[Rfam]
RNA sequence: UUUGAGCCGAGGGGCUUUGCGGAAACACUAGAUCGGCGUCGAUCGGAACCGUGCAAGAAGCCCGCACCACGUGAAGGACUGACUGAAGCGUGAUGAAUACUGAGCUCAUUUGCAAUGAGCAGUCAGGCAGUAGUAAG
Numbered sequence: 001u002u003u004g005a006g007c008c009g010a011g012g013g014g015c016u017u018u019g020c021g022g023a024a025a026c027a028c029u030a031g032a033u034c035g036g037c038g039u040c041g042a043u044c045g046g047a048a049c050c051g052u053g054c055a056a057g058a059a060g061c062c063c064g065c066a067c068c069a070c071g072u073g074a075a076g077g078a079c080u081g082a083c084u085g086a087a088g089c090g091u092g093a094u095g096a097a098u099a100c101u102g103a104g105c106u107c108a109u110u111u112g113c114a115a116u117g118a119g120c121a122g123u124c125a126g127g128c129a130g131u132a133g134u135a136a137g
Base pairs, nucleotide, nucleotide: 012063013062014061015060018055019054020053031044032043033042034041035040065095066094068092069091070090071089072088079126080125081124082123098132099131100130101129104120105119106118107117108116